[Rfam]
RNA sequence: CUCGUCCGUCUCGUGGACGCCCUGACCAUCAGCCCCCGGUCCCGGCUACCCUGGCGGCGUGCGUUCUCCCCGGGGACGUCCACGACGGGCGGCACCGGGCAGAGGCAAAGCCGACAGCCGUCGCAUCCUAGGGAGCCCUUUCAUG
Numbered sequence: 001c002u003c004g005u006c007c008g009u010c011u012c013g014u015g016g017a018c019g020c021c022c023u024g025a026c027c028a029u030c031a032g033c034c035c036c037c038g039g040u041c042c043c044g045g046c047u048a049c050c051c052u053g054g055c056g057g058c059g060u061g062c063g064u065u066c067u068c069c070c071c072g073g074g075g076a077c078g079u080c081c082a083c084g085a086c087g088g089g090c091g092g093c094a095c096c097g098g099g100c101a102g103a104g105g106c107a108a109a110g111c112c113g114a115c116a117g118c119c120g121u122c123g124c125a126u127c128c129u130a131g132g133g134a135g136c137c138c139u140u141u142c143a144u145g
Base pairs, nucleotide, nucleotide: 060107061106062105065103066102067101110124111123113122114121115120

This 145-nucleotide RNA sequence belongs to the Rfam family "Streptomyces-metH RNA". By type it is a small RNA.